Description: The family of this 66-nucleotide RNA from Tumebacillus algifaecis is "Bacillaceae-1 RNA".

RNA sequence: CGCGGUGGUAGCCCAACGAAGAACGCGACAUCCUGUCGCAACGUUGGACAAUGAACAUACUGUUCU
Number, nucleotide and partner (000 for none) at each position: 001c000002g000003c000004g000005g000006u000007g000008g000009u000010a000011g049012c000013c047014c046015a045016a044017c043018g000019a000020a000021g000022a000023a000024c000025g039026c038027g037028a036029c035030a000031u000032c000033c000034u000035g029036u028037c027038g026039c025040a000041a000042c000043g017044u016045u015046g014047g013048a000049c011050a000051a000052u000053g065054a064055a063056c062057a000058u000059a000060c000061u000062g056063u055064u054065c053066u000
The family's RNA type in Rfam is small RNA. Rfam 15.1 lists 5,721 matches to the family in 247 species. The base pairs follow the family's consensus structure, which is taken from published work. The organism belongs to Tumebacillus, within Bacteria. A search with the family's covariance model found it, with a score of 42 bits.